A member of the RNA family "mir-223 microRNA precursor family" from Poecilia formosa, 106 nucleotides long. For this family Rfam cites "Vertebrate microRNA genes" (Lim et al., Science, 2003). The family has 27 seed sequences and 674 matches in Rfam 15.1. Rfam links the family to the GO terms RISC complex and miRNA-mediated post-transcriptional gene silencing.

RNA sequence: CUCCGGCGAUCAGGCCCCCCACUUAGUGUAUUUGACAAGCUGAGUUGGACACUCUGUAUCAGUGAGUGUCAGUUUGUCAAAUACCCCAAGUGAGGUGUCACUUCUC
Number, nucleotide and partner (000 for none) at each position: 001c000002u000003c000004c000005g000006g000007c000008g000009a000010u000011c000012a000013g000014g000015c000016c000017c000018c000019c000020c092021a091022c090023u089024u000025a000026g086027u000028g084029u083030a082031u081032u080033u079034g078035a077036c076037a075038a074039g073040c072041u071042g000043a000044g000045u000046u000047g000048g070049a069050c068051a067052c000053u065054c064055u000056g000057u000058a000059u000060c000061a000062g000063u000064g054065a053066g000067u051068g050069u049070c048071a041072g040073u039074u038075u037076g036077u035078c034079a033080a032081a031082u030083a029084c028085c000086c026087c000088a000089a023090g022091u021092g020093a000094g000095g000096u000097g000098u000099c000100a000101c000102u000103u000104c000105u000106c000